[Rfam]
RNA sequence: ACGACCUUUAAAUUUGGUCCAGAGAGGCUGAGAAGGUAAGAUUGUAUAUAUUGUGUAAAAGCAGCAUUAUUUAUGUAUAGCUUUGUUUUCGUAUGCAAGAGCCUUCUGCCAUAGUAGAAGGCUCUAUUUUUG
Numbered sequence: 001a002c003g004a005c006c007u008u009u010a011a012a013u014u015u016g017g018u019c020c021a022g023a024g025a026g027g028c029u030g031a032g033a034a035g036g037u038a039a040g041a042u043u044g045u046a047u048a049u050a051u052u053g054u055g056u057a058a059a060a061g062c063a064g065c066a067u068u069a070u071u072u073a074u075g076u077a078u079a080g081c082u083u084u085g086u087u088u089u090c091g092u093a094u095g096c097a098a099g100a101g102c103c104u105u106c107u108g109c110c111a112u113a114g115u116a117g118a119a120g121g122c123u124c125u126a127u128u129u130u131u132g
Base pairs, nucleotide, nucleotide: 004037005036006035007034008033009032014031015030016029017028018027019026048072050070051069053067054066055065056064098125099124100123101122102121103120104119105118106117107116108115109114